[Rfam]
RNA sequence: UCUGGAUAAACUUGUAUCCAUCCAAGAGAAUGGAACAAGUCACUUUACGGAAGUUAAAAUGAGUAAACCAUUUUAGGAUUGAUACAGACUUUUAUAAAGUGAAAUUCUGAAAUGUUGGGGUAACCGUAUGUCCUUUAACACUAUUUGUGUUAUAAAAAUAAUCUUGAAUAACUUUGAUUAAGUUUUUGAGUUACGGUGAG
Numbered sequence: 001u002c003u004g005g006a007u008a009a010a011c012u013u014g015u016a017u018c019c020a021u022c023c024a025a026g027a028g029a030a031u032g033g034a035a036c037a038a039g040u041c042a043c044u045u046u047a048c049g050g051a052a053g054u055u056a057a058a059a060u061g062a063g064u065a066a067a068c069c070a071u072u073u074u075a076g077g078a079u080u081g082a083u084a085c086a087g088a089c090u091u092u093u094a095u096a097a098a099g100u101g102a103a104a105u106u107c108u109g110a111a112a113u114g115u116u117g118g119g120g121u122a123a124c125c126g127u128a129u130g131u132c133c134u135u136u137a138a139c140a141c142u143a144u145u146u147g148u149g150u151u152a153u154a155a156a157a158a159u160a161a162u163c164u165u166g167a168a169u170a171a172c173u174u175u176g177a178u179u180a181a182g183u184u185u186u187u188g189a190g191u192u193a194c195g196g197u198g199a200g
Stems, first nucleotide, its partner, number of pairs: 001051004006046001008044001010040006017034005022028001066116003070113003074109007088100002091097001117134005123197006129158001136152005163190006170183001
Shown here is a 200-nucleotide RNA, a member of the family "IS605-orfB-I RNA". It is one of the family's seed sequences.